[Rfam]
The record is a 151-nucleotide sequence from Frigidibacter albus, which matches "Ruegeria cis2 sRNA" in Rfam.
RNA sequence: CGAGGUGUGGUGCGGGUUGUAGUUGAUGAACACGAAGCCGCGGGUCUGGUCGAUGAUGUGAAAGAGCGGGUUCCAGUCGAAGAACUGCAGCAUGCUGUAGGAAAGGCUGUUGGCGACGAACAUCUUGCCCGAGGCGAUCAUGCUGGCCCUU
Numbered sequence: 001c002g003a004g005g006u007g008u009g010g011u012g013c014g015g016g017u018u019g020u021a022g023u024u025g026a027u028g029a030a031c032a033c034g035a036a037g038c039c040g041c042g043g044g045u046c047u048g049g050u051c052g053a054u055g056a057u058g059u060g061a062a063a064g065a066g067c068g069g070g071u072u073c074c075a076g077u078c079g080a081a082g083a084a085c086u087g088c089a090g091c092a093u094g095c096u097g098u099a100g101g102a103a104a105g106g107c108u109g110u111u112g113g114c115g116a117c118g119a120a121c122a123u124c125u126u127g128c129c130c131g132a133g134g135c136g137a138u139c140a141u142g143c144u145g146g147c148c149c150u151u
Base pairs, nucleotide, nucleotide: 001034002033006032007031008030013025014024015023037057039055040054041052042051043050064151065150066149068147071081072080073079088145089144090143091142092141093140094139098134101130104126105125106124108122110119111118112117
Dot-bracket structure: ((...(((....(((.......)))....)))))..(.(((((......))).)).)......(((.(..(((.....)))......(((((((...(..(..(((.(.(((....)))..).)))...)...)....))))))).).)))